[Rfam]
RNA sequence: CAUCAGUAUCAGGAACGCAAAAGUUGCGUACCAACCGAGCACAAAAGCCGCGGUGGUUUAGAAUACGGACAGUUCAGUCAAAAUAAAUGAAUACC
Numbered sequence: 001c002a003u004c005a006g007u008a009u010c011a012g013g014a015a016c017g018c019a020a021a022a023g024u025u026g027c028g029u030a031c032c033a034a035c036c037g038a039g040c041a042c043a044a045a046a047g048c049c050g051c052g053g054u055g056g057u058u059u060a061g062a063a064u065a066c067g068g069a070c071a072g073u074u075c076a077g078u079c080a081a082a083a084u085a086a087a088u089g090a091a092u093a094c095c
Stems, first nucleotide, its partner, number of pairs: 006066004015029006030057003035053003039048002045088001068079003